A member of the RNA family "Fluoride riboswitch aptamer (crcB RNA motif)" from Priestia koreensis, 60 nucleotides long.
A reference for the family is Baker et al. (2012), "Widespread genetic switches and toxicity resistance proteins for fluoride", Science.
RNA sequence: AAUACAUACAGCGAUGGAGUUCGCUAUAAGUGCCUUCGGGCUGAUGACUCCUACUCAUUC
Numbered sequence: 001a002a003u004a005c006a007u008a009c010a011g012c013g014a015u016g017g018a019g020u021u022c023g024c025u026a027u028a029a030g031u032g033c034c035u036u037c038g039g040g041c042u043g044a045u046g047a048c049u050c051c052u053a054c055u056c057a058u059u060c
Stems, first nucleotide, its partner, number of pairs: 010025004016051006032041003